[Rfam]
RNA sequence: UUAAAGAAUUUAAAGACCUCAACUUGCAGACUUGAAGAAUUUUAAGACUUCAACUUGCAAACAUGAAGAAUUUGAAGAUUUCCUUU
Numbered sequence: 001u002u003a004a005a006g007a008a009u010u011u012a013a014a015g016a017c018c019u020c021a022a023c024u025u026g027c028a029g030a031c032u033u034g035a036a037g038a039a040u041u042u043u044a045a046g047a048c049u050u051c052a053a054c055u056u057g058c059a060a061a062c063a064u065g066a067a068g069a070a071u072u073u074g075a076a077g078a079u080u081u082c083c084u085u086u
Stems, first nucleotide, its partner, number of pairs: 004081003009076006017068001019066003025059004032053006
Shown here is an 86-nucleotide sequence from Solanum commersonii, a member of the family "MIR8024 microRNA precursor family".
Its family is annotated with RISC complex and miRNA-mediated post-transcriptional gene silencing in the Gene Ontology.
The family's consensus secondary structure was predicted with RNAalifold.
Taxonomically the source falls in Solanum (Eukaryota, Tracheophyta, Pentapetalae, Solaneae).
A search with the family's covariance model found it, with a score of 72 bits.